[Rfam]
RNA sequence: AUGCCCAGUGAUUAUAAAAAGACGCGUUAUUCUGAGGAAUACAACCUGCUACCAGUCUUUCUUCUACCGUGUACUCUGUCUUUGAUCUCCAUCUUUCUUAUCCUUCCUCCACUCCUUCUCCUCUUCUCUUCAAACUGGCAGCUGGUCCGCUGACUGCGAUUAUGAGAUAUGAGGGCAU
Dot-bracket structure: ((((((............................(((((......................................................)))))..........................................................................))))))
RNA: Small nucleolar RNA SNORD97
Organism: Sander lucioperca